[Rfam]
RNA sequence: UUUUGCAGUGGGAAUGAAGUUCUCCCUUAGUUGUAUAAACUAAAACCGCUAAUGUUAGCUGAUGACUUCUGCCUUUUU
Numbered sequence: 001u002u003u004u005g006c007a008g009u010g011g012g013a014a015u016g017a018a019g020u021u022c023u024c025c026c027u028u029a030g031u032u033g034u035a036u037a038a039a040c041u042a043a044a045a046c047c048g049c050u051a052a053u054g055u056u057a058g059c060u061g062a063u064g065a066c067u068u069c070u071g072c073c074u075u076u077u078u
Base pairs, nucleotide, nucleotide: 010026011025012024013023016069017068018067019066020065021064048059049058050057051056
Shown here is a 78-nucleotide sequence from Amedibacterium intestinale, a member of the family "Fluoride riboswitch aptamer (crcB RNA motif)". The family has 289 seed sequences and 2,293 matches in Rfam 15.1. Its family is annotated with response to fluoride and positive regulation of gene expression in the Gene Ontology.